A member of the RNA family "MIR845_2 microRNA precursor family" from Vitis vinifera, 128 nucleotides long. Its family is annotated with RISC complex and miRNA-mediated post-transcriptional gene silencing in the Gene Ontology. Taxonomically the source falls in Vitis (Eukaryota, Streptophyta, Euphyllophyta, Mesangiospermae). A search with the family's covariance model found it, with a score of 98 bits. A reference for the family is Jaillon et al. (2007), "The grapevine genome sequence suggests ancestral hexaploidization in major angiosperm phyla", Nature.
RNA sequence: AAAAAACAUAUUCAUUAUCCUUGGGACCAUGAGAUAAAAUACCCUACAAAACCAAGUUACCACACCUUAGAAUGGUUUUAACAGACUUACUAACCUAUGGCUCUAAUACCAAUUGGUGGGAAAAAUCC
Dot-bracket structure: ........((((.(((.....((((.(((((.(...........(....((.((..(((........)))..)).)).....)..........).))))).)))).....))).))))..........